[Rfam]
RNA sequence: UGCACACAAACAAACAAACCCAAAGGUCAUUAGUUUCCUGUGGUGAUUUACGCUGUGUGCGCGCAAAGAAAAUGUAAGGACCUUGUUGCCUUUUAUAGGCUGUGUUUGUGCCAAUAAAAGUGAAUUCAAGGUACGACAUUC
Numbered sequence: 001u002g003c004a005c006a007c008a009a010a011c012a013a014a015c016a017a018a019c020c021c022a023a024a025g026g027u028c029a030u031u032a033g034u035u036u037c038c039u040g041u042g043g044u045g046a047u048u049u050a051c052g053c054u055g056u057g058u059g060c061g062c063g064c065a066a067a068g069a070a071a072a073u074g075u076a077a078g079g080a081c082c083u084u085g086u087u088g089c090c091u092u093u094u095a096u097a098g099g100c101u102g103u104g105u106u107u108g109u110g111c112c113a114a115u116a117a118a119a120g121u122g123a124a125u126u127c128a129a130g131g132u133a134c135g136a137c138a139u140u141c
Stems, first nucleotide, its partner, number of pairs: 001063003005059003025048008078134001080132005090120007098112003

The family of this 141-nucleotide RNA sequence from Electrophorus electricus is "Small nucleolar RNA SNORA68". It is annotated as an H/ACA-box small nucleolar RNA. On this family, see Ganot et al., Genes Dev 1997: "The family of box ACA small nucleolar RNAs is defined by an evolutionarily conserved secondary structure and ubiquitous sequence elements essential for RNA accumulation". Its family is annotated with RNA processing and nucleolus in the Gene Ontology. The base pairs follow the family's consensus structure, which was predicted with PFOLD. About the family: U68 is a member of the H/ACA class of small nucleolar RNAs (snoRNAs) which act as guides in the the modification of uridines to pseudouridines.